[Rfam]
RNA sequence: UUGAAUGCAUUGAAUGAGUGAAGUAGUGCAUGGAACCACUGCCUUAGAGAACCGGCGGCUGCUGAGAGCUGGUGCAAGUUUCAGCAUGAAUUACCCUCUGGAGCACUGCCGGGCAGCCGUCCGGUGGCGGUAUGCCUACGAUACAGGUCCAAAGUGGAAAGUUGUAGUCAACUUUCAAAAAGGGUGGUAACGCGACCGCAAACGUCCCUUUC
Numbered sequence: 001u002u003g004a005a006u007g008c009a010u011u012g013a014a015u016g017a018g019u020g021a022a023g024u025a026g027u028g029c030a031u032g033g034a035a036c037c038a039c040u041g042c043c044u045u046a047g048a049g050a051a052c053c054g055g056c057g058g059c060u061g062c063u064g065a066g067a068g069c070u071g072g073u074g075c076a077a078g079u080u081u082c083a084g085c086a087u088g089a090a091u092u093a094c095c096c097u098c099u100g101g102a103g104c105a106c107u108g109c110c111g112g113g114c115a116g117c118c119g120u121c122c123g124g125u126g127g128c129g130g131u132a133u134g135c136c137u138a139c140g141a142u143a144c145a146g147g148u149c150c151a152a153a154g155u156g157g158a159a160a161g162u163u164g165u166a167g168u169c170a171a172c173u174u175u176c177a178a179a180a181a182g183g184g185u186g187g188u189a190a191c192g193c194g195a196c197c198g199c200a201a202a203c204g205u206c207c208c209u210u211u212c
Base pairs, nucleotide, nucleotide: 007104008103016098017097018096026087027086028085029084040076041075042074051073052072053071054070055069056068106127107126108125109124110123111122112121113120114119128140129139157176158175159174160173161172162171163170181209182208183207184206192205193204194203